[Rfam]
RNA sequence: UAAGCACGAAAAGCGCCAGAACUUGUCGGCUGCACGAGGGCGGUUGCCGGAAAACGGAAUUCCGCGCAACAUGCGUUUAUGCGCUCGGGGUUAUGCGGCAAGUUGACGAGGUGGAGGUGUUCGGAACGUUCGGCGGGGACCUCCCGGCCCGCAUCGGGGCCGUAAGACGGAAGACAAAACGCUCAGGGCAACCGGGCGGCCAAUAUUCCGAAGAAGAUGA
Numbered sequence: 001u002a003a004g005c006a007c008g009a010a011a012a013g014c015g016c017c018a019g020a021a022c023u024u025g026u027c028g029g030c031u032g033c034a035c036g037a038g039g040g041c042g043g044u045u046g047c048c049g050g051a052a053a054a055c056g057g058a059a060u061u062c063c064g065c066g067c068a069a070c071a072u073g074c075g076u077u078u079a080u081g082c083g084c085u086c087g088g089g090g091u092u093a094u095g096c097g098g099c100a101a102g103u104u105g106a107c108g109a110g111g112u113g114g115a116g117g118u119g120u121u122c123g124g125a126a127c128g129u130u131c132g133g134c135g136g137g138g139a140c141c142u143c144c145c146g147g148c149c150c151g152c153a154u155c156g157g158g159g160c161c162g163u164a165a166g167a168c169g170g171a172a173g174a175c176a177a178a179a180c181g182c183u184c185a186g187g188g189c190a191a192c193c194g195g196g197c198g199g200c201c202a203a204u205a206u207u208c209c210g211a212a213g214a215a216g217a218u219g220a
Stems, first nucleotide, its partner, number of pairs: 020104008113144005121133004145162006168210005180198005186193002
The family of this 220-nucleotide sequence from Cohnella thailandensis is "glmS glucosamine-6-phosphate activated ribozyme aptamer".
The match comes from Rfam's covariance-model search (70 bits).
Pairs were carried over by alignment from the consensus structure, which is taken from published work.
Lineage of the source: Bacteria > Bacillati > Bacillota > Paenibacillaceae > Cohnella.